About this RNA
The record is a 72-nucleotide RNA from Pseudomonas knackmussii, which matches "Pseudomonas sRNA P9" in Rfam. It is annotated as a non-coding RNA gene. The family's consensus secondary structure was predicted with RNAalifold.
RNA sequence: AUCAUUAUUACCGCCAUUACGCAAUUGGCGGGUUAGCCGACGUCCACCGAACCCGCCCUGGAGGCGGGUUCU
Numbered sequence: 001a002u003c004a005u006u007a008u009u010a011c012c013g014c015c016a017u018u019a020c021g022c023a024a025u026u027g028g029c030g031g032g033u034u035a036g037c038c039g040a041c042g043u044c045c046a047c048c049g050a051a052c053c054c055g056c057c058c059u060g061g062a063g064g065c066g067g068g069u070u071c072u
Stems, first nucleotide, its partner, number of pairs: 011031006049071009